[Rfam]
RNA sequence: ACUGCACGAUUGUGUGUAUUGGUGUUGUGCUGUCAAUAUAUGCACUUCUUGCCAAAAGUGAUUUCCUGCAACAGUAGGCAACUGGAUUUAACUAAACAUUUUUAUUGGGAACCACAACAAUCAUUUUCCUCAUAUAU
Numbered sequence: 001a002c003u004g005c006a007c008g009a010u011u012g013u014g015u016g017u018a019u020u021g022g023u024g025u026u027g028u029g030c031u032g033u034c035a036a037u038a039u040a041u042g043c044a045c046u047u048c049u050u051g052c053c054a055a056a057a058g059u060g061a062u063u064u065c066c067u068g069c070a071a072c073a074g075u076a077g078g079c080a081a082c083u084g085g086a087u088u089u090a091a092c093u094a095a096a097c098a099u100u101u102u103u104a105u106u107g108g109g110a111a112c113c114a115c116a117a118c119a120a121u122c123a124u125u126u127u128c129c130u131c132a133u134a135u136a137u
Stems, first nucleotide, its partner, number of pairs: 004069003008065001009062001014045006076130003080126002083123003088117002
Rfam assigns this 137-nucleotide sequence from Dioscorea zingiberensis to the family "small nucleolar RNA snoR135". Its family is annotated with RNA processing and nucleolus in the Gene Ontology. Pairs were carried over by alignment from the consensus structure, which was predicted with RNAalifold.